[Rfam]
RNA sequence: UAGCCUUAGGGAUGAACCAGUCCCUUACAUCUAUUCUCCCUUGCACUUCACCAUGUCAGCCAUCUUGUCUCUGAUUUUUGCUGACAAAAUUUUGGGGGAUAUAU
Numbered sequence: 001u002a003g004c005c006u007u008a009g010g011g012a013u014g015a016a017c018c019a020g021u022c023c024c025u026u027a028c029a030u031c032u033a034u035u036c037u038c039c040c041u042u043g044c045a046c047u048u049c050a051c052c053a054u055g056u057c058a059g060c061c062a063u064c065u066u067g068u069c070u071c072u073g074a075u076u077u078u079u080g081c082u083g084a085c086a087a088a089a090u091u092u093u094g095g096g097g098g099a100u101a102u103a104u
Base pairs, nucleotide, nucleotide: 038098039097040096041095042094043093055085056084057083058082059081060080062078
Overview:
Shown here is a 104-nucleotide RNA sequence from Elaeis guineensis, a member of the family "Small nucleolar RNA snoR99". Rfam classes the family as an H/ACA-box small nucleolar RNA.